[Rfam]
RNA sequence: UUGCAUUCUUAAACCCUCUUGGCAGCUUUGCUCUGGUGCUUCCAAGAUAUGAGUGAAUGCUAGACAAAGUGCGGGGGAGUCCAAAGGGCUGCGCUCCUCACGUGGCUCAGUCUUAUUUCAUACCUGCGACAUCU
Numbered sequence: 001u002u003g004c005a006u007u008c009u010u011a012a013a014c015c016c017u018c019u020u021g022g023c024a025g026c027u028u029u030g031c032u033c034u035g036g037u038g039c040u041u042c043c044a045a046g047a048u049a050u051g052a053g054u055g056a057a058u059g060c061u062a063g064a065c066a067a068a069g070u071g072c073g074g075g076g077g078a079g080u081c082c083a084a085a086g087g088g089c090u091g092c093g094c095u096c097c098u099c100a101c102g103u104g105g106c107u108c109a110g111u112c113u114u115a116u117u118u119c120a121u122a123c124c125u126g127c128g129a130c131a132u133c134u
Stems, first nucleotide, its partner, number of pairs: 003060004008053004017047006024040003064134001066132001070128006085114007093106002097102001
Dot-bracket structure: ..((((.((((.....((((((.(((...........))).))))))..))))...))))...(.(...((((((.........(((((((.((..(....)..)).)))))))........))))))...).)
RNA: Small nucleolar RNA SNORA14
Organism: Mus musculus